Record summary:
The family of this 121-nucleotide sequence from Eubacterium coprostanoligenes is "FMN riboswitch aptamer (RFN element)". The base pairs follow the family's consensus structure, which is taken from published work. The RFN element is a highly conserved domain that is found frequently in the 5'-untranslated regions of prokaryotic mRNAs that encode for flavin mononucleotide (FMN) biosynthesis and transport proteins. A reference for the family is Serganov et al. (2009), "Coenzyme recognition and gene regulation by a flavin mononucleotide riboswitch", Nature.
RNA sequence: AAAAUAUUUCGGGGCGAGGUGCAAUUCCUCACCGGUGGUAUAGUCCACGACCUGUCGCAAGACAGUUGAUUCGGUGAAAAUCCGAAACCGACGGUUAAAGUCCGGAUGAAAGAAAUAUAAA
Numbered sequence: 001a002a003a004a005u006a007u008u009u010c011g012g013g014g015c016g017a018g019g020u021g022c023a024a025u026u027c028c029u030c031a032c033c034g035g036u037g038g039u040a041u042a043g044u045c046c047a048c049g050a051c052c053u054g055u056c057g058c059a060a061g062a063c064a065g066u067u068g069a070u071u072c073g074g075u076g077a078a079a080a081u082c083c084g085a086a087a088c089c090g091a092c093g094g095u096u097a098a099a100g101u102c103c104g105g106a107u108g109a110a111a112g113a114a115a116u117a118u119a120a121a
Stems, first nucleotide, its partner, number of pairs: 004118007017029003031101002033090002035048004043088002052065002070086005092104003